[Rfam]
RNA sequence: CGCGGACGGGUAGCUGUUGAGCCCGGGGCGGUAGCGUG
Numbered sequence: 001c002g003c004g005g006a007c008g009g010g011u012a013g014c015u016g017u018u019g020a021g022c023c024c025g026g027g028g029c030g031g032u033a034g035c036g037u038g
Stems, first nucleotide, its partner, number of pairs: 007025005

The family of this 38-nucleotide RNA from Pluralibacter gergoviae is "JUMPstart RNA". It scores 37 bits against the family's covariance model. It is annotated as a cis-regulatory element.